RNA sequence: AGCUGUGCAGUGAGCACAGAACAAACUAUUCUUUCGCCUUUUACUAAAGAAUACCGUGUGCUCGCUGCAAUUAGCAGCAUACGCUAAUUUUUUGAGAGGAACCUUCGUUUCGAGGGUUC
Numbered sequence: 001a002g003c004u005g006u007g008c009a010g011u012g013a014g015c016a017c018a019g020a021a022c023a024a025a026c027u028a029u030u031c032u033u034u035c036g037c038c039u040u041u042u043a044c045u046a047a048a049g050a051a052u053a054c055c056g057u058g059u060g061c062u063c064g065c066u067g068c069a070a071u072u073a074g075c076a077g078c079a080u081a082c083g084c085u086a087a088u089u090u091u092u093u094g095a096g097a098g099g100a101a102c103c104u105u106c107g108u109u110u111c112g113a114g115g116g117u118u119c
Stems, first nucleotide, its partner, number of pairs: 003077004008067011027053008100118006
RNA: U5 spliceosomal RNA
Organism: Arachis hypogaea